[Rfam]
RNA sequence: CACAGCACCCAUCUCCGAGCCGUAGCUGCCUACAGAACUUUGUGUUCCAUGGCUUGCGGCCUGCGGGUACCGCCGGAAACGGCGUUGCCUUCCUGUUGAAAAGGGGAUGGUUGACAUCGGCA
Numbered sequence: 001c002a003c004a005g006c007a008c009c010c011a012u013c014u015c016c017g018a019g020c021c022g023u024a025g026c027u028g029c030c031u032a033c034a035g036a037a038c039u040u041u042g043u044g045u046u047c048c049a050u051g052g053c054u055u056g057c058g059g060c061c062u063g064c065g066g067g068u069a070c071c072g073c074c075g076g077a078a079a080c081g082g083c084g085u086u087g088c089c090u091u092c093c094u095g096u097u098g099a100a101a102a103g104g105g106g107a108u109g110g111u112u113g114a115c116a117u118c119g120g121c122a
Base pairs, nucleotide, nucleotide: 006113011108012107013106014105015104016103019060020059021058022057023056024055025054028053029052030051035047036046037045065090066089067088068087069086071084072083073082074081075080091099092098

Description
Molybdenum/Tungsten riboswitch aptamer (Moco RNA motif): a 122-nucleotide sequence from a Desulfuromonadales bacterium. A search with the family's covariance model found it, with a score of 58 bits. The source organism's lineage runs through Bacteria, Pseudomonadati, Thermodesulfobacteriota, Desulfuromonadia and Desulfuromonadales. Its family is annotated with tungstate binding, molybdenum ion binding and regulation of gene expression in the Gene Ontology.